Annotation
The record is an 89-nucleotide RNA sequence from Nicotiana attenuata, which matches "MIR6152 microRNA precursor family" in Rfam. Pairs were carried over by alignment from the consensus structure, which was predicted with RNAalifold. Rfam links the family to the GO terms miRNA-mediated post-transcriptional gene silencing and RISC complex.

RNA sequence: UGGACAAAUUAUUGUAUUCGACUGUAUUCACGUCGUGAAAUAGGGGAUUACACUGUUUUUAAAACGGAAAGUGAAUCAAUUAGACUCCU
Numbered sequence: 001u002g003g004a005c006a007a008a009u010u011a012u013u014g015u016a017u018u019c020g021a022c023u024g025u026a027u028u029c030a031c032g033u034c035g036u037g038a039a040a041u042a043g044g045g046g047a048u049u050a051c052a053c054u055g056u057u058u059u060u061a062a063a064a065c066g067g068a069a070a071g072u073g074a075a076u077c078a079a080u081u082a083g084a085c086u087c088c089u
Stems, first nucleotide, its partner, number of pairs: 011089001014086001017083002020081002023078002026076006034066003037059007